[Rfam]
RNA: Mammalian CPEB3 ribozyme
RNA sequence: AACGCAUUCAGGGGUAAUUGUAGAAGCGUACUCGUCGCGGCCCCUGCCAGCCCUUUUCAGGGCUGCAAUUCUACA
Number, nucleotide and partner (000 for none) at each position: 001a000002a000003c000004g000005c000006a000007u000008u000009c000010a000011g044012g043013g042014g041015u040016a000017a000018u000019u075020g074021u073022a072023g071024a070025a069026g038027c037028g036029u000030a000031c000032u000033c000034g000035u000036c028037g027038c026039g000040g015041c014042c013043c012044c011045u000046g000047c000048c065049a064050g063051c062052c061053c060054u059055u000056u000057u000058c000059a054060g053061g052062g051063c050064u049065g048066c000067a000068a000069u025070u024071c023072u022073a021074c020075a019